[Rfam]
RNA sequence: AGUAUUUGUGCCUAUUUUUGUCUAACUUGUGAACUAAAACUUCUGGACAGAUGCAAAAAAUAAAUCCUCUUUUGCAACACAGAACUCACUGUUCAGCAUGAGUUUUGAUAUACAUAAAAAGGAAUAUU
Dot-bracket structure: .((((((((.(...((((.((....(....).)).)))).....).)))))))).........((.((.(((((.....(((((((((..........))))))))).......))))).)).))...